[Rfam]
Rfam assigns this 146-nucleotide RNA sequence from Sinorhizobium sp. BG8 to the family "Rhizobiales sRNA Atu_C7". The match comes from Rfam's covariance-model search (58 bits). A reference for the family is Wilms et al. (2012), "Deep sequencing uncovers numerous small RNAs on all four replicons of the plant pathogen Agrobacterium tumefaciens", RNA Biol.
RNA sequence: GGGUGUAGUUGCCUCAUCACAGGUCAAUAGUACGAUUUUUCAGGUUCUCCUGGCGCGUCUAAAUUUGCAGCAGGUGUUCUCCUCCCUCUCCUGCUUGCGAUGCGCCCUCCUGGCCUCGCUCGUCCAAGAGACAAGCGAGGCUUUUU
Numbered sequence: 001g002g003g004u005g006u007a008g009u010u011g012c013c014u015c016a017u018c019a020c021a022g023g024u025c026a027a028u029a030g031u032a033c034g035a036u037u038u039u040u041c042a043g044g045u046u047c048u049c050c051u052g053g054c055g056c057g058u059c060u061a062a063a064u065u066u067g068c069a070g071c072a073g074g075u076g077u078u079c080u081c082c083u084c085c086c087u088c089u090c091c092u093g094c095u096u097g098c099g100a101u102g103c104g105c106c107c108u109c110c111u112g113g114c115c116u117c118g119c120u121c122g123u124c125c126a127a128g129a130g131a132c133a134a135g136c137g138a139g140g141c142u143u144u145u146u
Stems, first nucleotide, its partner, number of pairs: 052106008070094005076088001113141008123131002